[Rfam]
RNA sequence: ACAUGCCUGGCUCCCUGUAUGCCAUUUGCAAAGUCCACCCGAGGAUUGGUAGCCUUCGCGGAUGGCGUGCGAGGAGCCAUGCAUGC
Number, nucleotide and partner (000 for none) at each position: 001a000002c085003a084004u083005g082006c081007c000008u079009g078010g077011c076012u075013c074014c073015c000016u071017g070018u069019a068020u067021g066022c065023c064024a063025u000026u000027u060028g059029c058030a000031a000032a000033g000034u000035c000036c000037a000038c000039c000040c000041g000042a000043g000044g000045a000046u000047u000048g000049g000050u000051a000052g000053c000054c000055u000056u000057c000058g029059c028060g027061g000062a000063u024064g023065g022066c021067g020068u019069g018070c017071g016072a000073g014074g013075a012076g011077c010078c009079a008080u000081g006082c005083a004084u003085g002086c000
mir-160 microRNA precursor family: an 86-nucleotide sequence from Vitis vinifera. The family has 7 seed sequences and 1,502 matches in Rfam 15.1.